[Rfam]
RNA sequence: UCUGGCGUUGAUUGUCCAAACGCAAUUCUUGUAUUUUUGUCUUCAUAUCCAGGAGUUGUGGAUGGACAUCAUACCCCCGA
Numbered sequence: 001u002c003u004g005g006c007g008u009u010g011a012u013u014g015u016c017c018a019a020a021c022g023c024a025a026u027u028c029u030u031g032u033a034u035u036u037u038u039g040u041c042u043u044c045a046u047a048u049c050c051a052g053g054a055g056u057u058g059u060g061g062a063u064g065g066a067c068a069u070c071a072u073a074c075c076c077c078c079g080a
Base pairs, nucleotide, nucleotide: 002079004077005076007074009071010070011069012068014067015066016065017064018063021060022059023058024057025056026055027054028053029052030051031050
RNA: mir-219 microRNA precursor family
Organism: Myripristis murdjan